[Rfam]
Shown here is a 78-nucleotide RNA sequence from Drosophila pseudoobscura, a member of the family "mir-1006 microRNA precursor family". The family's consensus secondary structure was predicted with RNAalifold. Rfam's curators put it in the seed alignment. Gene Ontology terms of the family: miRNA-mediated post-transcriptional gene silencing and RISC complex.
RNA sequence: CAACUUUCAGGUGAGUUUGAAAUUGAAAUGUGUAAAUUGUUUGUGCCAAUUUAAAUUCGAUUUCUUAUUCAUAGGUGC
Numbered sequence: 001c002a003a004c005u006u007u008c009a010g011g012u013g014a015g016u017u018u019g020a021a022a023u024u025g026a027a028a029u030g031u032g033u034a035a036a037u038u039g040u041u042u043g044u045g046c047c048a049a050u051u052u053a054a055a056u057u058c059g060a061u062u063u064c065u066u067a068u069u070c071a072u073a074g075g076u077g078c
Stems, first nucleotide, its partner, number of pairs: 003076004011072006019064009033053007